[Rfam]
RNA sequence: UCCCGGUCUCCAAAGCCGGGAAUACUGAAGAGGCACACCCUCAUUGCCUUAAGUGCGGCGGGUCCAAGCCCUCCAAGCCAAGGCAGACAUAACGGCGGACGACGCUAUGGCAGCGUUUGAUUCGUCGCUCGAGUCGCGUUUCGC
Numbered sequence: 001u002c003c004c005g006g007u008c009u010c011c012a013a014a015g016c017c018g019g020g021a022a023u024a025c026u027g028a029a030g031a032g033g034c035a036c037a038c039c040c041u042c043a044u045u046g047c048c049u050u051a052a053g054u055g056c057g058g059c060g061g062g063u064c065c066a067a068g069c070c071c072u073c074c075a076a077g078c079c080a081a082g083g084c085a086g087a088c089a090u091a092a093c094g095g096c097g098g099a100c101g102a103c104g105c106u107a108u109g110g111c112a113g114c115g116u117u118u119g120a121u122u123c124g125u126c127g128c129u130c131g132a133g134u135c136g137c138g139u140u141u142c143g144c
Base pairs, nucleotide, nucleotide: 001021002020003019004018005017006016007015032048033047034046035045055128056127057126083093102116103115104114105113106112